This 132-nucleotide RNA sequence from Apteryx australis belongs to the Rfam family "Small nucleolar RNA SNORA68".

RNA sequence: AAUGCACACAAAAACCCAAAGAAUAUUGUUCCUAGUAAUGAUGUUCUUGUCAUGUGUGCAAAUAUUAUAUGUAUCUUGUCGCCUUUGAACAGUUGAAGUGCUGUUGAAAGUGAAACUUAAGGUCCUACAUGU
Numbered sequence: 001a002a003u004g005c006a007c008a009c010a011a012a013a014a015c016c017c018a019a020a021g022a023a024u025a026u027u028g029u030u031c032c033u034a035g036u037a038a039u040g041a042u043g044u045u046c047u048u049g050u051c052a053u054g055u056g057u058g059c060a061a062a063u064a065u066u067a068u069a070u071g072u073a074u075c076u077u078g079u080c081g082c083c084u085u086u087g088a089a090c091a092g093u094u095g096a097a098g099u100g101c102u103g104u105u106g107a108a109a110g111u112g113a114a115a116c117u118u119a120a121g122g123u124c125c126u127a128c129a130u131g132u
Stems, first nucleotide, its partner, number of pairs: 003060007021046010071125001073123005083110004088105006
Background
On this family, see Ganot et al., Genes Dev 1997: "The family of box ACA small nucleolar RNAs is defined by an evolutionarily conserved secondary structure and ubiquitous sequence elements essential for RNA accumulation". Rfam's curators write: U68 is a member of the H/ACA class of small nucleolar RNAs (snoRNAs) which act as guides in the the modification of uridines to pseudouridines. Taxonomically the source falls in Apteryx (Eukaryota, Bilateria, Sauria, Saurischia). The family has 26 seed sequences and 1,079 matches in Rfam 15.1. The family's consensus secondary structure was predicted with PFOLD.